[Rfam]
RNA sequence: AAAUGUCAUGUGGUAUCUGAUGCCUGGUCUCGUUUCAGUGGCCUCGCGUCUCGUAAGAGUGGCAGACAGUGAUCGGCGGGUUCUUUGCGACACGGGCUGCUCUUCGACCAUGAGCUUCUUGUUACUAUUCCCCCGCGACAUUU
Numbered sequence: 001a002a003a004u005g006u007c008a009u010g011u012g013g014u015a016u017c018u019g020a021u022g023c024c025u026g027g028u029c030u031c032g033u034u035u036c037a038g039u040g041g042c043c044u045c046g047c048g049u050c051u052c053g054u055a056a057g058a059g060u061g062g063c064a065g066a067c068a069g070u071g072a073u074c075g076g077c078g079g080g081u082u083c084u085u086u087g088c089g090a091c092a093c094g095g096g097c098u099g100c101u102c103u104u105c106g107a108c109c110a111u112g113a114g115c116u117u118c119u120u121g122u123u124a125c126u127a128u129u130c131c132c133c134c135g136c137g138a139c140a141u142u143u
Stems, first nucleotide, its partner, number of pairs: 004064005009058001019050005026043004032039001076136005092122005099115003
Record summary:
The family of this 143-nucleotide RNA sequence from Zea mays is "Small nucleolar RNA F1/F2/snoR5a". From the family's description: This family contains F1, F2 and snoR5a sequences, all of which are members of the the H/ACA class of snoRNA that guide the sites of modification of uridines to pseudouridines. The family's RNA type in Rfam is H/ACA-box small nucleolar RNA. Taxonomically the source falls in Zea (Eukaryota, Spermatophyta, Magnoliopsida, Liliopsida). It scores 60 bits against the family's covariance model.